Annotation
The record is a 103-nucleotide RNA sequence from Oryza nivara, which matches "MIR1846 microRNA precursor family" in Rfam. Gene Ontology terms of the family: RISC complex and miRNA-mediated post-transcriptional gene silencing.
RNA sequence: CCGCUCCCUCCCCGCCGGAUCUCCCAGUGAGGAGGCUAGGGCCGCCGGAUCCGGUGACCCCAUUCUCCUCGCCGGCGGAUCCGGCGCCCUAGAGAGGAACAAG
Numbered sequence: 001c002c003g004c005u006c007c008c009u010c011c012c013c014g015c016c017g018g019a020u021c022u023c024c025c026a027g028u029g030a031g032g033a034g035g036c037u038a039g040g041g042c043c044g045c046c047g048g049a050u051c052c053g054g055u056g057a058c059c060c061c062a063u064u065c066u067c068c069u070c071g072c073c074g075g076c077g078g079a080u081c082c083g084g085c086g087c088c089c090u091a092g093a094g095a096g097g098a099a100c101a102a103g
Base pairs, nucleotide, nucleotide: 001097002096004094005093006092012086014085015084016083017082018081019080020079021078022077024075025074027072028071029070030069031068032067033066034065035064037062039060040059041058043056044055045054046053047052